[Rfam]
RNA: Mammalian CPEB3 ribozyme
RNA sequence: AGAGAUUGCAAGGUCAAGGUCAUAGCAGAAGCGCUCACUGCGCGGCCCUAUCAAAUUUGCACGAAUUGGUGAGUUCUGCU
Numbered sequence: 001a002g003a004g005a006u007u008g009c010a011a012g013g014u015c016a017a018g019g020u021c022a023u024a025g026c027a028g029a030a031g032c033g034c035u036c037a038c039u040g041c042g043c044g045g046c047c048c049u050a051u052c053a054a055a056u057u058u059g060c061a062c063g064a065a066u067u068g069g070u071g072a073g074u075u076c077u078g079c080u
Stems, first nucleotide, its partner, number of pairs: 013048001018047004024080007031043003052069001054067005
Dot-bracket structure: ............[....[[[[..((((((((((.......)))]]]]]...(.(((((....))))).)....)))))))